[Rfam]
RNA sequence: GCGGAUGGCCGGAUGACCGCGGGUCCUUCGGGGCGCGAGGAAAGUCCGGACUCCAUGAAGCUGCGGUGCCGGGUAACGCCCGGCCGGGGAAACCCGAGGGAAAGCGCCACAGAGAAGAGACUACCCCGGCCUGUCCGGGGAAAAGGUGAAACGGUGGGGUAAGAGCCCACCGCGGGACUGGCAACAGGACCGGCACGGCAAGCCCCACCGGGAGCAAUGCCAAAUAGGGACCUCGCGCGGGGGCCGGUCUGCGCGCAAGCGCAGAGACCGCCCGCAGGGACGCUUCAGCCCGAGAGGUCCGGGUUGGCAGCUUGAUCCCGCCGGUAACGGCGGGGCGAGAGGAAUGGUCAUCGAACCCCGGAUCAAGGUCCGGGGGGAACAGAAUCCGGCUUACAGGCCGUCCGCGCAU
Dot-bracket structure: ((((((((((((((((((.((.((((....)))).))....[[[.[[[[[((((.....[...((((((((((.....)))))(((((....)))).)((...(((((............((.((((((.....))))))...)).......((((((.......))))))((((..(((....)))..))).)..)))..)))))))))))))...((((......((((((...........................................(((.....]...)))...)))))).....))))......((((((((....))))))))..........)))))))................................]]]]]]]].).))))))))))....
RNA: Bacterial RNase P class A